[Rfam]
RNA: Streptomyces-metK RNA
Organism: Streptomyces sp. B93
RNA sequence: GCGAGACGGGGGUCCGGUGACCGAACGCGACCGAUAAACUGUCUCUCGGACGACGCCGGGCGCAGCCCCCGUCCCGUCCGCCCAUGAUCAGCCAGCAGCCGCUGCAACCCCAGGGAG
Number, nucleotide and partner (000 for none) at each position: 001g000002c000003g000004a000005g000006a000007c000008g000009g000010g000011g000012g000013u000014c000015c000016g000017g000018u000019g000020a000021c000022c000023g000024a000025a000026c000027g000028c000029g000030a000031c000032c000033g000034a000035u000036a000037a000038a000039c000040u000041g000042u000043c000044u000045c000046u000047c000048g079049g078050a077051c076052g075053a000054c000055g000056c000057c071058g070059g069060g068061c000062g000063c000064a000065g000066c000067c000068c060069c059070c058071g057072u000073c000074c000075c052076g051077u050078c049079c048080g000081c000082c000083c000084a000085u000086g000087a000088u000089c000090a000091g000092c000093c104094a103095g102096c101097a000098g000099c000100c000101g096102c095103u094104g093105c000106a000107a000108c000109c000110c000111c000112a000113g000114g000115g000116a000117g000